[Rfam]
RNA sequence: CUUCAUCGAGCCGAGCCACAGCGGCUUUUCCCGACCCCGCCCGUACGUGGCCAGCAGCGCCUCUGCCUC
Numbered sequence: 001c002u003u004c005a006u007c008g009a010g011c012c013g014a015g016c017c018a019c020a021g022c023g024g025c026u027u028u029u030c031c032c033g034a035c036c037c038c039g040c041c042c043g044u045a046c047g048u049g050g051c052c053a054g055c056a057g058c059g060c061c062u063c064u065g066c067c068u069c
Stems, first nucleotide, its partner, number of pairs: 014026004031065001032059002037054001039052001041050003
This 69-nucleotide RNA sequence from Phytohabitans flavus belongs to the Rfam family "ASpks TB sRNA". It scores 72 bits against the family's covariance model.